[Rfam]
RNA sequence: GAUUCUGAACUGAACUUCGACAACCCGCUGAAUUUAAGCAUAUUAUUAAGUGGUGGAAAGGAAACUAACUAUGAUUCCCUUAGUAACUGCGAGUGAACAGGGAAGAGCCCAGCGCCGAAUCCCCGCUCACCUGACAAGUGAGGGAAAUGUGGGUAUAGAAGUCCUUUCUCUGACGAUGCCAAGACACCCAAGUCCUCCUGAUCGAGGCCUAGCCUGAGGCCGAUGGUGGCGCACGGCUCGUCGGGAUUGGGUCUUCUUGGAGUCGGGUUGCUUGUGAAUGCAGCCCAAAGCGGGUGGUAAACUCCAUCUAAGGCUAAAUACUGGCACGAGACCGAUAGUCAACAAGUACCAUAAGGAAAAGUUGAAAAGAACUUUGAAGAGAGAGUUCAAGAGGGCGUGAAACUGUUAACAGGUAAAU
Dot-bracket structure: .......................((((((.....((....))......))))).)..........(....)....(((((.....((.....))....)))))..((((...(.(((.(((((((((.........)))).))))..).))))....((.(.((.(..(....(((..(...(.((((...(.((((......)))))..(...).........)))).)....)..))).....)..))).).))........(((((((........))))))).....(((((........)))))..)))).................................((....))...............((((....))))...................................
RNA: Eukaryotic large subunit ribosomal RNA, nucleotides 1 to 418